[Rfam]
RNA sequence: AGCGCUGCGCAAGUGGGCCGACGGUCGACUCCGGUGGCGCAGGGACGCGGCCCGUCCCAGAAAGCUGUGA
Numbered sequence: 001a002g003c004g005c006u007g008c009g010c011a012a013g014u015g016g017g018c019c020g021a022c023g024g025u026c027g028a029c030u031c032c033g034g035u036g037g038c039g040c041a042g043g044g045a046c047g048c049g050g051c052c053c054g055u056c057c058c059a060g061a062a063a064g065c066u067g068u069g070a
Stems, first nucleotide, its partner, number of pairs: 003039006042058005

hya RNA: a 70-nucleotide RNA from Mycolicibacterium agri. A search with the family's covariance model found it, with a score of 81 bits. The family's consensus secondary structure is taken from published work. Rfam classes the family as a cis-regulatory element.